[Rfam]
RNA sequence: AGAUCGCGUCCCGAGGCACUCCUCCUCCCAGCCAACGGACGUGUGACACGCAGGGCAUCCUCCUCCCAGCCCUGUCACGUCGAAACAACGCCCGCCAGUACCUCCUCCCACUGGCGGGUGUUUGU
Numbered sequence: 001a002g003a004u005c006g007c008g009u010c011c012c013g014a015g016g017c018a019c020u021c022c023u024c025c026u027c028c029c030a031g032c033c034a035a036c037g038g039a040c041g042u043g044u045g046a047c048a049c050g051c052a053g054g055g056c057a058u059c060c061u062c063c064u065c066c067c068a069g070c071c072c073u074g075u076c077a078c079g080u081c082g083a084a085a086c087a088a089c090g091c092c093c094g095c096c097a098g099u100a101c102c103u104c105c106u107c108c109c110a111c112u113g114g115c116g117g118g119u120g121u122u123u124g125u
Stems, first nucleotide, its partner, number of pairs: 007041003011037001015033003051074006089120011

Rfam assigns this 125-nucleotide sequence from Roseibium alexandrii to the family "Alphaproteobacterial ar14".
From the family's description: Smr14C2 was renamed NfeR1 (Nodule Formation Efficiency RNA) highly expressed in salt stress and during the symbiotic interaction on legume roots.
Rfam links the family to the GO term biological process involved in symbiotic interaction.
The organism belongs to Roseibium, within Bacteria.
The match comes from Rfam's covariance-model search (65 bits).